[Rfam]
Nucleotides: 085
Base pairs, nucleotide, nucleotide: 012037013036017032018031019030020029021028022027040079041078042077043076045074046073047072048069049068050067055063056062
Number, partner (000 for none) and nucleotide at each position: 001000a002000u003000a004000u005000u006000u007000u008000a009000a010000c011000g012037g013036c014000a015000a016000g017032a018031u019030a020029a021028u022027u023000g024000a025000a026000a027022a028021a029020u030019u031018a032017u033000u034000a035000c036013g037012c038000a039000a040079a041078g042077a043076c044000u045074u046073g047072a048069a049068u050067c051000u052000a053000c054000g055063g056062a057000a058000u059000u060000u061000a062056u063055c064000u065000a066000u067050g068049a069048u070000u071000g072047u073046c074045a075000a076043g077042u078041u079040u080000g081000c082000c083000u084000c085000a

Notes:
A member of the RNA family "c-di-GMP-I riboswitch aptamer" from Halanaerobium saccharolyticum, 85 nucleotides long. The base pairs follow the family's consensus structure, which is taken from published work. Taxonomically the source falls in Halanaerobium saccharolyticum subsp. saccharolyticum (Bacteria, Halanaerobiales, Halanaerobium, Halanaerobium saccharolyticum). Its family is annotated with cyclic-di-GMP binding in the Gene Ontology. The match comes from Rfam's covariance-model search (53 bits).